The record is a 181-nucleotide RNA sequence from Elachura formosa, which matches "Small nucleolar RNA SNORA23" in Rfam.
It is annotated as an H/ACA-box small nucleolar RNA.
The members of this family belong to the H/ACA class of snoRNAs which are thought to guide the sites of modification of uridines to pseudouridines.
It scores 136 bits against the family's covariance model.
The family has 9 seed sequences and 1,092 matches in Rfam 15.1.
[Rfam]
Nucleotides: 181
Base pairs, nucleotide, nucleotide: 013091014090015089030083031082032081034079035078036077037075038074039073040072041071044068045067046066047065048064051061052060053059107174108173109172110171111170120160121159122158123157124156125155127154128153129152130151132145133143134142135141
Number, partner (000 for none) and nucleotide at each position: 001000g002000c003000a004000g005000c006000a007000c008000u009000g010000u011000g012000u013091g014090c015089a016000c017000a018000g019000u020000u021000u022000c023000c024000u025000c026000u027000c028000u029000g030083u031082g032081u033000c034079u035078g036077g037075u038074g039073g040072u041071a042000g043000g044068g045067u046066c047065u048064g049000u050000g051061u052060g053059u054000g055000u056000u057000c058000u059053g060052c061051a062000c063000a064048c065047a066046g067045g068044c069000u070000g071041u072040a073039c074038u075037g076000c077036u078035c079034a080000c081032a082031c083030a084000a085000a086000a087000c088000c089015u090014g091013u092000g093000g094000c095000c096000a097000a098000a099000g100000a101000u102000g103000a104000a105000c106000c107174u108173g109172a110171g111170a112000u113000c114000a115000u116000a117000g118000u119000a120160c121159u122158g123157g124156u125155c126000u127154a128153g129152u130151g131000g132145c133143g134142u135141c136000u137000a138000c139000a140000g141135g142134a143133c144000g145132g146000c147000a148000u149000c150000c151130c152129a153128c154127u155125g156124a157123c158122c159121a160120g161000c162000c163000u164000c165000c166000a167000c168000u169000c170111u171110c172109u173108c174107a175000a176000a177000c178000a179000u180000c181000u